A member of the RNA family "Small nucleolar RNA SNORD113/SNORD114 family", 69 nucleotides long. For this family Rfam cites "Identification of tandemly-repeated C/D snoRNA genes at the imprinted human 14q32 domain reminiscent of those at the Prader-Willi/Angelman syndrome region" (Cavaille et al., Hum Mol Genet, 2002). The sequence is in the family's curated seed alignment. Pairs were carried over by alignment from the consensus structure, which is taken from published work. The imprinted human domain at 14q32 contains two clusters of tandemly repeated small nucleolar RNAs named 14q(I) and 14q(II) snoRNAs. These two clusters are named SNORD113 and SNORD114 respectively in the HGNC approved gene symbol nomenclature. The snoRNAs found in both clusters are clearly related and are represented here by a single family.

RNA sequence: AGGACCGAUGAUGAGAUCUGAUGGUGUCUGAGUGUUUCUCGAUGACAUGAACAGAUAUCUGAGGUCAGG
Numbered sequence: 001a002g003g004a005c006c007g008a009u010g011a012u013g014a015g016a017u018c019u020g021a022u023g024g025u026g027u028c029u030g031a032g033u034g035u036u037u038c039u040c041g042a043u044g045a046c047a048u049g050a051a052c053a054g055a056u057a058u059c060u061g062a063g064g065u066c067a068g069g
Stems, first nucleotide, its partner, number of pairs: 003066004
Dot-bracket structure: ..((((........................................................))))...